[Rfam]
RNA sequence: UUUUCUCUCCCUUGUACGUCGCUUUGGACAAAAGCGUCUGCUAAAUGACAAUGU
Numbered sequence: 001u002u003u004u005c006u007c008u009c010c011c012u013u014g015u016a017c018g019u020c021g022c023u024u025u026g027g028a029c030a031a032a033a034g035c036g037u038c039u040g041c042u043a044a045a046u047g048a049c050a051a052u053g054u
Base pairs, nucleotide, nucleotide: 013043014041015040016039020036021035022034023033024032025031
Rfam assigns this 54-nucleotide RNA sequence from Clupea harengus to the family "UnaL2 LINE 3' element". The source organism's lineage runs through Eukaryota, Eumetazoa, Craniata, Neopterygii and Clupea. It scores 55 bits against the family's covariance model.